[Rfam]
RNA sequence: AGGCUAGCAUCUUAAGAGCUAGACCUGUUAAAUAAAACUAAAUACAGUUUCCUAAAGGACGUCUGGUAUCCGCUAGGAGCUGGAACGGGAG
Numbered sequence: 001a002g003g004c005u006a007g008c009a010u011c012u013u014a015a016g017a018g019c020u021a022g023a024c025c026u027g028u029u030a031a032a033u034a035a036a037a038c039u040a041a042a043u044a045c046a047g048u049u050u051c052c053u054a055a056a057g058g059a060c061g062u063c064u065g066g067u068a069u070c071c072g073c074u075a076g077g078a079g080c081u082g083g084a085a086c087g088g089g090a091g
Stems, first nucleotide, its partner, number of pairs: 001026003004022005010017002060087003063083005069078003